[Rfam]
RNA sequence: CAGGCCCCGGUUCACGUCAUCGCCGAUGACGACCCGGCGACC
Numbered sequence: 001c002a003g004g005c006c007c008c009g010g011u012u013c014a015c016g017u018c019a020u021c022g023c024c025g026a027u028g029a030c031g032a033c034c035c036g037g038c039g040a041c042c
Base pairs, nucleotide, nucleotide: 003042004041007037008036009035010034015031016030017029018028019027020026021025
Shown here is a 42-nucleotide RNA, a member of the family "L31-Actinobacteria ribosomal protein leader". By type it is a cis-regulatory leader. Pairs were carried over by alignment from the consensus structure, which is taken from published work.